[Rfam]
Nucleotides: 091
Stems, first nucleotide, its partner, number of pairs: 006086002009083001011081003020035004037071003040067002044065003049059002
Number, partner (000 for none) and nucleotide at each position: 001000g002000c003000u004000u005000g006086c007085g008000u009083a010000u011081c012080g013079g014000g015000a016000g017000a018000c019000g020035c021034c022033g023032g024000c025000g026000g027000c028000a029000a030000c031000g032023c033022c034021g035020g036000g037071g038070c039069c040067g041066a042000a043000g044065g045064a046063g047000c048000a049059g050058c051000c052000g053000c054000c055000c056000c057000g058050g059049c060000g061000a062000a063046c064045u065044c066041u067040c068000a069039g070038g071037c072000a073000a074000a075000a076000g077000g078000a079013c080012c081011g082000u083009u084000u085007c086006g087000c088000g089000c090000g091000u